The family of this 511-nucleotide part of an RNA from Medioppia subpectinata is "Eukaryotic large subunit ribosomal RNA". A search with the family's covariance model found it, with a score of 3017 bits.
RNA sequence: CCCUCUGAAGUUUCCCUCAGGAUAGCAGACACUCGGUGAGAUUCAGUCUCAUCCGGUAAAGCGAAUGAUUAGAGGCAUUGGGGUCGAAACGACCUCAACCUAUUCUCAAACUUUAAAUGGGUGAGAAGUAUGACUUGUUUGAUUAAAGCCAUACUAUCGGAUGUAUGAGUGCCUAGUGGGCCAUUUUUGGUAAGCAGAACUGGCGCUGUGGGAUGAACCAAACGUCGAGUUAAAGUGUCCGAUGCUAACGCUCAUGAGAUCCCAGAAAAGGUGUUGGUUGCUAUAAACAGCAGGAAGAUGGCCAUGGAAGUCGGAAUUCUCUAAGGAGUGUGUAACAACUCACCUGCCGAAGCAACUAGCCCUGAAAAUGGAUGACGCUGUAGCGUUGAACUCAUACUCGACCGUGAGAGUGAUCAUAAAAAAUACGAUACUCUCACGAGUAAGAGGGUCGCAGCGGUAAGCGUUGAAGGUGUCAAACGUGAGUUUGCCUGGAGCUGCCGCUGAUGCAGAU
Numbered sequence: 001c002c003c004u005c006u007g008a009a010g011u012u013u014c015c016c017u018c019a020g021g022a023u024a025g026c027a028g029a030c031a032c033u034c035g036g037u038g039a040g041a042u043u044c045a046g047u048c049u050c051a052u053c054c055g056g057u058a059a060a061g062c063g064a065a066u067g068a069u070u071a072g073a074g075g076c077a078u079u080g081g082g083g084u085c086g087a088a089a090c091g092a093c094c095u096c097a098a099c100c101u102a103u104u105c106u107c108a109a110a111c112u113u114u115a116a117a118u119g120g121g122u123g124a125g126a127a128g129u130a131u132g133a134c135u136u137g138u139u140u141g142a143u144u145a146a147a148g149c150c151a152u153a154c155u156a157u158c159g160g161a162u163g164u165a166u167g168a169g170u171g172c173c174u175a176g177u178g179g180g181c182c183a184u185u186u187u188u189g190g191u192a193a194g195c196a197g198a199a200c201u202g203g204c205g206c207u208g209u210g211g212g213a214u215g216a217a218c219c220a221a222a223c224g225u226c227g228a229g230u231u232a233a234a235g236u237g238u239c240c241g242a243u244g245c246u247a248a249c250g251c252u253c254a255u256g257a258g259a260u261c262c263c264a265g266a267a268a269a270g271g272u273g274u275u276g277g278u279u280g281c282u283a284u285a286a287a288c289a290g291c292a293g294g295a296a297g298a299u300g301g302c303c304a305u306g307g308a309a310g311u312c313g314g315a316a317u318u319c320u321c322u323a324a325g326g327a328g329u330g331u332g333u334a335a336c337a338a339c340u341c342a343c344c345u346g347c348c349g350a351a352g353c354a355a356c357u358a359g360c361c362c363u364g365a366a367a368a369u370g371g372a373u374g375a376c377g378c379u380g381u382a383g384c385g386u387u388g389a390a391c392u393c394a395u396a397c398u399c400g401a402c403c404g405u406g407a408g409a410g411u412g413a414u415c416a417u418a419a420a421a422a423a424u425a426c427g428a429u430a431c432u433c434u435c436a437c438g439a440g441u442a443a444g445a446g447g448g449u450c451g452c453a454g455c456g457g458u459a460a461g462c463g464u465u466g467a468a469g470g471u472g473u474c475a476a477a478c479g480u481g482a483g484u485u486u487g488c489c490u491g492g493a494g495c496u497g498c499c500g501c502u503g504a505u506g507c508a509g510a511u
Stems, first nucleotide, its partner, number of pairs: 001448006011024001013022003027174002030171004047126008059114001060112002066108003071103001073101003078098006085091001128154005134148003180204004185199005209220003224402005230396001234392003243389001245388001249385003269363003273360010290347005296320003302314002321325001326341001330339002403438009450506001452503008461495002469490002476485003
A reference for the family is Cannone et al. (2002), "The comparative RNA web (CRW) site: an online database of comparative sequence and structure information for ribosomal, intron, and other RNAs", BMC Bioinformatics.